Rfam assigns this 110-nucleotide RNA sequence from Clostridium acidisoli to the family "Ribosomal protein L20 leader". The family's RNA type in Rfam is cis-regulatory leader. Rfam's curators write: This family is a putative r-protein leader autoregulatory structure found in B. subtilis and other low-GC Gram-positive bacteria. It is located in the 5' untranslated regions of mRNAs encoding initiation factor 3 followed by ribosomal proteins L35 and L20 (infC-rpmI-rplT). A Rho-independent transcription terminator structure that is probably involved in regulation is included at the 3' end. Rfam links the family to the GO term regulation of gene expression.
[Rfam]
RNA sequence: UACGUCAAGAAGAAACAUGCCGUUUCUCACCUUUCAGCCUUUUGCUAGUUGGGUUAGAUUUUAAUUUUGUUUAUUAUUAAGAGCGGCAUUUGUCGCUCUUUUAUUGUGCA
Numbered sequence: 001u002a003c004g005u006c007a008a009g010a011a012g013a014a015a016c017a018u019g020c021c022g023u024u025u026c027u028c029a030c031c032u033u034u035c036a037g038c039c040u041u042u043u044g045c046u047a048g049u050u051g052g053g054u055u056a057g058a059u060u061u062u063a064a065u066u067u068u069g070u071u072u073a074u075u076a077u078u079a080a081g082a083g084c085g086g087c088a089u090u091u092g093u094c095g096c097u098c099u100u101u102u103a104u105u106g107u108g109c110a
Stems, first nucleotide, its partner, number of pairs: 011027006029054003035048001037045002082097006